[Rfam]
A member of the RNA family "Small nucleolar RNA U109" from Cyprinus carpio, 138 nucleotides long. The family's consensus secondary structure was predicted with WAR. By type it is an H/ACA-box small nucleolar RNA. NCBI's taxonomy places the organism under Eukaryota, Deuterostomia, Actinopterygii, Otophysi, Cyprinus carpio.

RNA sequence: AUGCAUGACUGUCGUGGUUACUCUCUCACUCAUGGAGAGUAGAGACAUGAAGCCAUGCUAGAAUAACAUGCUUUGAGUCAUCAGGGCCACCAGUCUCUGAAGAACAGACUGUGUUGGUAGUAUAAAACUCACACAUUA
Numbered sequence: 001a002u003g004c005a006u007g008a009c010u011g012u013c014g015u016g017g018u019u020a021c022u023c024u025c026u027c028a029c030u031c032a033u034g035g036a037g038a039g040u041a042g043a044g045a046c047a048u049g050a051a052g053c054c055a056u057g058c059u060a061g062a063a064u065a066a067c068a069u070g071c072u073u074u075g076a077g078u079c080a081u082c083a084g085g086g087c088c089a090c091c092a093g094u095c096u097c098u099g100a101a102g103a104a105c106a107g108a109c110u111g112u113g114u115u116g117g118u119a120g121u122a123u124a125a126a127a128c129u130c131a132c133a134c135a136u137u138a
Base pairs, nucleotide, nucleotide: 003058004057005056006055007054018042019041020040021039022038023037024036025035074131075130076129077128086118087117090113091111092110093109094108095107096106